[Rfam]
RNA sequence: AGUCUCCUACUGCCUACCAGAGUCUGUAUUCUUACACUGACUGUUUAGAAAGAGGAGGCAAAACAAACCUCAGCCUGGGCCACUGUGCCUGGUCUGUAUUGUGAAUGGGAAGACAUAG
Numbered sequence: 001a002g003u004c005u006c007c008u009a010c011u012g013c014c015u016a017c018c019a020g021a022g023u024c025u026g027u028a029u030u031c032u033u034a035c036a037c038u039g040a041c042u043g044u045u046u047a048g049a050a051a052g053a054g055g056a057g058g059c060a061a062a063a064c065a066a067a068c069c070u071c072a073g074c075c076u077g078g079g080c081c082a083c084u085g086u087g088c089c090u091g092g093u094c095u096g097u098a099u100u101g102u103g104a105a106u107g108g109g110a111a112g113a114c115a116u117a118g
Stems, first nucleotide, its partner, number of pairs: 002059007021042002026037002029034001071096003075092006